About this RNA:
Rfam assigns this 128-nucleotide sequence from Roseibium hamelinense to the family "Ruegeria cis8 sRNA". The family's RNA type in Rfam is small RNA. Rfam 15.1 lists 138 matches to the family in 133 species.

[Rfam]
RNA sequence: ACGGCAAGGAUUUUUGCAAUGUAGGGGAUCAGCGGCAAGUUGAGUAUCAAAAGGAUCACGUUGCCCAGAUACAUCGAGAUGAUCACCGCCCAAAAGAUUUCCGGCUGAUCGAUCAUCAGACGCGGUCC
Number, nucleotide and partner (000 for none) at each position: 001a000002c000003g000004g017005c016006a015007a014008g013009g000010a000011u000012u000013u008014u007015u006016g005017c004018a000019a000020u000021g000022u000023a000024g000025g000026g128027g127028a000029u125030c124031a000032g000033c122034g121035g000036c119037a000038a000039g113040u112041u000042g000043a109044g000045u107046a106047u000048c104049a000050a000051a000052a100053g099054g098055a000056u097057c096058a000059c000060g000061u093062u092063g091064c000065c000066c088067a000068g086069a000070u000071a000072c000073a083074u082075c081076g000077a000078g000079a000080u000081g075082a074083u073084c000085a000086c068087c000088g066089c000090c000091c063092a062093a061094a000095a000096g057097a056098u054099u053100u052101c000102c000103g000104g048105c000106u046107g045108a000109u043110c000111g000112a040113u039114c000115a000116u000117c000118a000119g036120a000121c034122g033123c000124g030125g029126u000127c027128c026